[Rfam]
The family of this 270-nucleotide RNA sequence is "Clostridiales-3 RNA".
The sequence is in the family's curated seed alignment.
Pairs were carried over by alignment from the consensus structure, which is taken from published work.

RNA sequence: UAGUAGGCUGAUGGAUUGAGAGAUGAAAGCUGAGAGGCUGGACGGAAGUCUGGGCAAUGCGGGAGCAGGUAUGUUGCGUAAGGAUAAUAACCCAUGAGGGGCGAGAAGUUCGUCCCGAUCCCCGUAAUGCAGGUAGGGGAGAUAGCGCUUCUCCGGAAUGGAGAAGGGCGUCGUGAACACAGCUAGUGGCUCAUCUGUAAUUCCCGGAGGUGAGUACACCUUUACGUAUACGGGGCGAUGAGGGGUCAGAAAGACCGGCGUAUACCUUCA
Numbered sequence: 001u002a003g004u005a006g007g008c009u010g011a012u013g014g015a016u017u018g019a020g021a022g023a024u025g026a027a028a029g030c031u032g033a034g035a036g037g038c039u040g041g042a043c044g045g046a047a048g049u050c051u052g053g054g055c056a057a058u059g060c061g062g063g064a065g066c067a068g069g070u071a072u073g074u075u076g077c078g079u080a081a082g083g084a085u086a087a088u089a090a091c092c093c094a095u096g097a098g099g100g101g102c103g104a105g106a107a108g109u110u111c112g113u114c115c116c117g118a119u120c121c122c123c124g125u126a127a128u129g130c131a132g133g134u135a136g137g138g139g140a141g142a143u144a145g146c147g148c149u150u151c152u153c154c155g156g157a158a159u160g161g162a163g164a165a166g167g168g169c170g171u172c173g174u175g176a177a178c179a180c181a182g183c184u185a186g187u188g189g190c191u192c193a194u195c196u197g198u199a200a201u202u203c204c205c206g207g208a209g210g211u212g213a214g215u216a217c218a219c220c221u222u223u224a225c226g227u228a229u230a231c232g233g234g235g236c237g238a239u240g241a242g243g244g245g246u247c248a249g250a251a252a253g254a255c256c257g258g259c260g261u262a263u264a265c266c267u268u269c270a
Base pairs, nucleotide, nucleotide: 006031007030008029009028015024016023017022093175094174095173098116099115100114101113102112103111104110119140120139121138122137123136141172142171143170145169146168148166149165150164151163152162178188179187180186207222208221209220210219211218212217226265227264228263229262230261231260232259244256245255246254247253